Background:
Selenocysteine transfer RNA: a 91-nucleotide RNA sequence from Nocardioides panaciterrulae.
[Rfam]
RNA sequence: GGAGGCGUUUCUCGUCUGGUGACGGGCGCGGUCCUCAAAACCGUAGGGGCCCGGUAUCCGGGUCCGGCGGGUUCGAUUCCCGUCCGCCUCC
Dot-bracket structure: (((((((...((((((....)))))).(((((.......)))))..(((((.........)))))..((((.......))))..)))))))
Numbered sequence: 001g002g003a004g005g006c007g008u009u010u011c012u013c014g015u016c017u018g019g020u021g022a023c024g025g026g027c028g029c030g031g032u033c034c035u036c037a038a039a040a041c042c043g044u045a046g047g048g049g050c051c052c053g054g055u056a057u058c059c060g061g062g063u064c065c066g067g068c069g070g071g072u073u074c075g076a077u078u079c080c081c082g083u084c085c086g087c088c089u090c091c
Stems, first nucleotide, its partner, number of pairs: 001091007011026006028044005047065005068082004
The match comes from Rfam's covariance-model search (77 bits). A reference for the family is Mizutani and Goto (2000), "Eukaryotic selenocysteine tRNA has the 9/4 secondary structure", FEBS Lett. Taxonomically the source falls in Nocardioides (Bacteria, Actinomycetota, Actinomycetes, Nocardioidaceae).